[Rfam]
RNA sequence: UCCACUGAGCCAUCUCCCCAGCCCCCUUACAUUCUAAUUUAAAAAUAAUUGUAGGGCUGGCGAGAUGGCUCAGUGGU
Numbered sequence: 001u002c003c004a005c006u007g008a009g010c011c012a013u014c015u016c017c018c019c020a021g022c023c024c025c026c027u028u029a030c031a032u033u034c035u036a037a038u039u040u041a042a043a044a045a046u047a048a049u050u051g052u053a054g055g056g057c058u059g060g061c062g063a064g065a066u067g068g069c070u071c072a073g074u075g076g077u
Base pairs, nucleotide, nucleotide: 002076003075004074005073006072007071008070009069010068011067012066013065014064015063016062018060019059020058021057022056023055024054
RNA: mir-3473 microRNA precursor family